The family of this 163-nucleotide sequence from Colpidium colpoda is "Ciliate telomerase RNA". Rfam's curators put it in the seed alignment. The family is grouped with related families in Rfam's "Telomerase clan". For this family Rfam cites "Telomerase RNAs of different ciliates have a common secondary structure and a permuted template" (Lingner et al., Genes Dev, 1994). From the family's description: Telomerase is a ribonucleoprotein reverse transcriptase that synthesises telomeric DNA. Telomerase RNAs differ greatly in sequence and structure between vertebrates, ciliates and yeasts, but they share a 5' pseudoknot structure close to the template sequence. The family's consensus secondary structure is taken from published work. Rfam classes the family as a non-coding RNA gene.
[Rfam]
RNA sequence: GUAUCCCCGCAACUCCAUUCAGUUCGAAAUUGAACUGUCAUUCAACCCCAAAAAUCUAGUAAAAAAUAUUGCCGAAACUUUCAGGCAUUAAGGAAAGUAAAGCGGGAUCAGAUACUCCGACUUGUGAUACACUAUUUAUCACAUGGGAGAUCUAUUUUUAUUU
Numbered sequence: 001g002u003a004u005c006c007c008c009g010c011a012a013c014u015c016c017a018u019u020c021a022g023u024u025c026g027a028a029a030u031u032g033a034a035c036u037g038u039c040a041u042u043c044a045a046c047c048c049c050a051a052a053a054a055u056c057u058a059g060u061a062a063a064a065a066a067u068a069u070u071g072c073c074g075a076a077a078c079u080u081u082c083a084g085g086c087a088u089u090a091a092g093g094a095a096a097g098u099a100a101a102g103c104g105g106g107a108u109c110a111g112a113u114a115c116u117c118c119g120a121c122u123u124g125u126g127a128u129a130c131a132c133u134a135u136u137u138a139u140c141a142c143a144u145g146g147g148a149g150a151u152c153u154a155u156u157u158u159u160a161u162u163u
Stems, first nucleotide, its partner, number of pairs: 006106005020037006070087001072085002077098003081094002110153004116148003121145001125141005